Shown here is an 89-nucleotide RNA from Morella rubra, a member of the family "Small nucleolar RNA snoR26".
The literature on the family includes a 2001 paper in RNA by Brown et al., "Multiple snoRNA gene clusters from Arabidopsis".
Rfam classes the family as a C/D-box small nucleolar RNA.
Pairs were carried over by alignment from the consensus structure, which was predicted with WAR.

Nucleotides: 089
Stems, first nucleotide, its partner, number of pairs: 002089007
Number, partner (000 for none) and nucleotide at each position: 001000u002089g003088a004087g005086c006085a007084u008083c009000g010000g011000u012000g013000a014000u015000g016000a017000g018000u019000u020000u021000a022000u023000u024000c025000c026000u027000u028000u029000g030000u031000u032000a033000u034000c035000c036000u037000u038000g039000c040000a041000c042000u043000u044000u045000g046000a047000u048000u049000g050000c051000u052000a053000g054000u055000g056000a057000a058000g059000a060000a061000a062000c063000u064000a065000a066000u067000g068000g069000g070000g071000a072000c073000a074000g075000c076000u077000c078000u079000c080000u081000g082000a083008g084007a085006u086005g087004c088003u089002c